RNA sequence: GAAGACACCCAUUAGCGGUGUAGUUCCCCAACCUGGAGAUACCUUACCAUACUCAGCAUUU
Number, nucleotide and partner (000 for none) at each position: 001g000002a000003a000004g000005a000006c000007a000008c000009c000010c000011a000012u000013u000014a000015g000016c000017g045018g044019u000020g042021u041022a040023g000024u038025u037026c036027c035028c000029c000030a000031a000032c000033c000034u000035g027036g026037a025038g024039a000040u022041a021042c020043c000044u018045u017046a000047c000048c000049a000050u000051a000052c000053u000054c000055a000056g000057c000058a000059u000060u000061u000

The family of this 61-nucleotide RNA sequence from Anabaena sp. FACHB-1237 is "Plastid-psbN 5UTR RNA".
For this family Rfam cites "The primary transcriptome of barley chloroplasts: numerous noncoding RNAs and the dominating role of the plastid-encoded RNA polymerase" (Zhelyazkova et al., Plant Cell, 2012).
Rfam describes the family as follows. Plastid psbN is a non-coding RNA (ncRNA) recognised in plastids. It was reported as a conserved 11 stem-loop in the prime untranslated region (5UTR) of psbN genes. It has been reported that the motif is retained in a subset of mature transcripts in barley, which can suggests a possible role in transcript alternative 5 prime processing.
The base pairs follow the family's consensus structure, which was predicted with LocARNA.
It scores 54 bits against the family's covariance model.